[Rfam]
Rfam assigns this 69-nucleotide sequence from Gordonia rhizosphera to the family "Transposase-2 RNA".
It is one of the family's seed sequences.

RNA sequence: GAAGCGUCAACCCGGCACCAGCACCCGCUGGACAAGACCGGGACUGCCUCGCCGCAAGGCGAGGCUGCC
Number, nucleotide and partner (000 for none) at each position: 001g000002a000003a000004g000005c000006g000007u000008c000009a000010a000011c042012c041013c040014g039015g038016c000017a000018c031019c030020a029021g028022c027023a000024c000025c000026c000027g022028c021029u020030g019031g018032a000033c000034a000035a000036g000037a000038c015039c014040g013041g012042g011043a000044c000045u000046g065047c064048c063049u062050c061051g060052c059053c058054g000055c000056a000057a000058g053059g052060c051061g050062a049063g048064g047065c046066u000067g000068c000069c000